Shown here is a 124-nucleotide sequence from Cicer arietinum, a member of the family "Small nucleolar RNA SNORA69". Its family is annotated with RNA processing and nucleolus in the Gene Ontology. From the family's description: U69 is a member of the H/ACA class of small nucleolar RNAs (snoRNAs) which act as guides in the the modification of uridines to pseudouridines. The source organism's lineage runs through Eukaryota, Euphyllophyta, Hologalegina, Cicereae and Cicer.
Nucleotides: 124
Stems, first nucleotide, its partner, number of pairs: 003053006017040009064121011080105001082103009
Number, partner (000 for none) and nucleotide at each position: 001000a002000u003053g004052g005051g006050u007049g008048g009000g010000c011000a012000u013000a014000u015000u016000a017040c018039a019038g020037c021036g022035c023034u024033u025032u026000u027000g028000u029000g030000a031000g032025a033024a034023a035022g036021c037020g038019c039018u040017g041000u042000a043000a044000u045000a046000u047000g048008c049007c050006a051005c052004c053003c054000a055000u056000a057000u058000a059000u060000g061000a062000g063000u064121u065120a066119u067118g068117g069116g070115u071114g072113u073112g074111c075000a076000u077000u078000u079000u080105a081000g082103a083102g084101c085100g086099c087098u088097u089096u090095u091000u092000u093000g094000a095090g096089a097088a098087a099086g100085c101084g102083c103082u104000g105080u106000a107000a108000a109000a110000u111074g112073c113072a114071c115070a116069c117068c118067c119066a120065u121064a122000a123000c124000u